Shown here is a 214-nucleotide RNA sequence from Planomicrobium sp. YIM 101495, a member of the family "T-box leader".
RNA sequence: GAAAACGCGAAGACGGAGAUGUUUCCAGCUUUCAGCCAAUUUAGCGAACCGGGGAUAGUGUGAGUCCGGUAUGGCCAGCAGGAAAAGAUCACUCCUGAGCAGAAGCGGCGAAUUGAACGGUUAGCCGCUUCCGUUGCACCACGUUACGGUGAUUCGAGUGGCAGCUGAUCGAACUGCAACGAGGGUGGCACCGCGAGAGUUUCUCGUCCCUUUC
Numbered sequence: 001g002a003a004a005a006c007g008c009g010a011a012g013a014c015g016g017a018g019a020u021g022u023u024u025c026c027a028g029c030u031u032u033c034a035g036c037c038a039a040u041u042u043a044g045c046g047a048a049c050c051g052g053g054g055a056u057a058g059u060g061u062g063a064g065u066c067c068g069g070u071a072u073g074g075c076c077a078g079c080a081g082g083a084a085a086a087g088a089u090c091a092c093u094c095c096u097g098a099g100c101a102g103a104a105g106c107g108g109c110g111a112a113u114u115g116a117a118c119g120g121u122u123a124g125c126c127g128c129u130u131c132c133g134u135u136g137c138a139c140c141a142c143g144u145u146a147c148g149g150u151g152a153u154u155c156g157a158g159u160g161g162c163a164g165c166u167g168a169u170c171g172a173a174c175u176g177c178a179a180c181g182a183g184g185g186u187g188g189c190a191c192c193g194c195g196a197g198a199g200u201u202u203c204u205c206g207u208c209c210c211u212u213u214c
Stems, first nucleotide, its partner, number of pairs: 007100002015095004024083003028079002037073002048070006103130007132143003161177004166172001182211004193207005